[Rfam]
RNA sequence: GGGGCCGACCUGGUUUCGACGUGGGUUGCGAAGCAGUUGAGGGCAUACCGAGGACCCGUCACCUCGUAAAUCAAUGGGAAAGCAAUAAUUGCUACCUUUAGCAAGCAAGAAGCUGCAAACGAUUCGUCGUUUGCUCUCGCCGCUUAAACACCGGUGACUUCCCUCGUACUGGUCUGCCGAUAGGCCAGGGUCGCAAGACUAUACGAGGUCAUUCAUAUCGGAUCGCAUCGGGUGGGUGUCGUGACGCCAGAUGCUAAAACAAUCGCGACUCGCCGUUCCAAAGCGUGUUCGUCCGCGUUGGCCCGGUUAAAUCAAAUGACAGAACUAAGUAUGUAGAACUCUCUGUAGAGGACUUGCGGACGCGGGUUCGAUUCCCGCCGGCUCCACCA
Numbered sequence: 001g002g003g004g005c006c007g008a009c010c011u012g013g014u015u016u017c018g019a020c021g022u023g024g025g026u027u028g029c030g031a032a033g034c035a036g037u038u039g040a041g042g043g044c045a046u047a048c049c050g051a052g053g054a055c056c057c058g059u060c061a062c063c064u065c066g067u068a069a070a071u072c073a074a075u076g077g078g079a080a081a082g083c084a085a086u087a088a089u090u091g092c093u094a095c096c097u098u099u100a101g102c103a104a105g106c107a108a109g110a111a112g113c114u115g116c117a118a119a120c121g122a123u124u125c126g127u128c129g130u131u132u133g134c135u136c137u138c139g140c141c142g143c144u145u146a147a148a149c150a151c152c153g154g155u156g157a158c159u160u161c162c163c164u165c166g167u168a169c170u171g172g173u174c175u176g177c178c179g180a181u182a183g184g185c186c187a188g189g190g191u192c193g194c195a196a197g198a199c200u201a202u203a204c205g206a207g208g209u210c211a212u213u214c215a216u217a218u219c220g221g222a223u224c225g226c227a228u229c230g231g232g233u234g235g236g237u238g239u240c241g242u243g244a245c246g247c248c249a250g251a252u253g254c255u256a257a258a259a260c261a262a263u264c265g266c267g268a269c270u271c272g273c274c275g276u277u278c279c280a281a282a283g284c285g286u287g288u289u290c291g292u293c294c295g296c297g298u299u300g301g302c303c304c305g306g307u308u309a310a311a312u313c314a315a316a317u318g319a320c321a322g323a324a325c326u327a328a329g330u331a332u333g334u335a336g337a338a339c340u341c342u343c344u345g346u347a348g349a350g351g352a353c354u355u356g357c358g359g360a361c362g363c364g365g366g367u368u369c370g371a372u373u374c375c376c377g378c379c380g381g382c383u384c385c386a387c388c389a
Base pairs, nucleotide, nucleotide: 001385002384003383004382005381006380007379020358021357022356023355024354025353026352027351033346034345035344036343039341040340041339044333045332046331047330048329049066050065051064052063053062055078056077057076058075059074137157138156139155140154141153142152162208163207164206165205166204167203173184177221178220179219180218181217182216225254226253227252228251229250231248238269239268240267241266242265272307273306274305275304278301279300280299281298283296284295285294287325288324289323290322291320292319293318362378363377364376365375366374